[Rfam]
Background:
Fluoride riboswitch aptamer (crcB RNA motif): a 61-nucleotide RNA sequence from Chelatococcus reniformis. The base pairs follow the family's consensus structure, which is taken from published work. The match comes from Rfam's covariance-model search (57 bits).
RNA sequence: CCUGACGAUGGGGAUGGGGUCCCCCGAAACCGCCGCACAGGCUGAUGACUCCUACCAGGCG
Numbered sequence: 001c002c003u004g005a006c007g008a009u010g011g012g013g014a015u016g017g018g019g020u021c022c023c024c025c026g027a028a029a030c031c032g033c034c035g036c037a038c039a040g041g042c043u044g045a046u047g048a049c050u051c052c053u054a055c056c057a058g059g060c061g
Stems, first nucleotide, its partner, number of pairs: 010025004016052006032042003